About this RNA:
The record is a 44-nucleotide RNA from Chimonanthus praecox, which matches "Plastid-ccsA-ndhD-2 3UTR RNA" in Rfam. NCBI's taxonomy places the organism under Eukaryota, Streptophytina, Magnoliopsida, Magnoliidae, Chimonanthus. Rfam classes the family as a cis-regulatory element. From the family's description: Plastid ccsA-ndhD-2 is a non-coding RNA (ncRNA) recognised in plastids. It was found in the three prime untranslated region (3UTR) of ccsA and ndhD genes, its 3UTR location suggests a role in transcript maturation. Rfam's curators put it in the seed alignment.
[Rfam]
RNA sequence: UUUUUGAGAACCACUUGAAUCAAGUAGUGAUUCAAAUGGUUCUC
Numbered sequence: 001u002u003u004u005u006g007a008g009a010a011c012c013a014c015u016u017g018a019a020u021c022a023a024g025u026a027g028u029g030a031u032u033c034a035a036a037u038g039g040u041u042c043u044c
Stems, first nucleotide, its partner, number of pairs: 006044008015035008